Rfam assigns this 76-nucleotide sequence from Pomatostomus ruficeps to the family "mir-196 microRNA precursor family".
Rfam 15.1 lists 1,813 matches to the family in 642 species.
For this family Rfam cites "Vertebrate microRNA genes" (Lim et al., Science, 2003).
A search with the family's covariance model found it, with a score of 67 bits.
The organism belongs to Pomatostomus, within Eukaryota.
Rfam links the family to the GO terms RISC complex and gene silencing by miRNA.

RNA sequence: UCUGUGGAUUAGGUAGUUUCAUGUUGUUGGGCGCGUCUCUGCAAACACAAGGACAUCAAACUACCUGAUCUACUCC
Number, nucleotide and partner (000 for none) at each position: 001u000002c000003u000004g073005u072006g071007g070008a069009u068010u067011a066012g065013g064014u063015a062016g061017u060018u059019u058020c000021a000022u055023g054024u053025u052026g000027u050028u049029g048030g000031g046032c000033g000034c000035g000036u000037c000038u000039c000040u000041g000042c000043a000044a000045a000046c031047a000048c029049a028050a027051g000052g025053a024054c023055a022056u000057c000058a019059a018060a017061c016062u015063a014064c013065c012066u011067g010068a009069u008070c007071u006072a005073c004074u000075c000076c000